A member of the RNA family "Small nucleolar RNA SNORA69" from Anabarilius grahami, 134 nucleotides long. Rfam links the family to the GO terms nucleolus and RNA processing. Taxonomically the source falls in Anabarilius (Eukaryota, Euteleostomi, Otomorpha, Xenocyprididae). U69 is a member of the H/ACA class of small nucleolar RNAs (snoRNAs) which act as guides in the the modification of uridines to pseudouridines.
RNA sequence: AAAGCAGGACGCAAUUGCAGUGCUCAAUCUUUGUGGGAGUACUGUCAUUAUCCUGCUGAGAGCAUCAUCUGCUGUAGAGUCAUGAUCACUGUCAUCUCCCAUGUGACUGUGAAUGCUCUGUUGUGGAGACACAU
Dot-bracket structure: ..((((((.........((((((((...........)))))))).......))))))..........(((((.((((........((((.(((((.(...).))))).)))).....)))).))))).......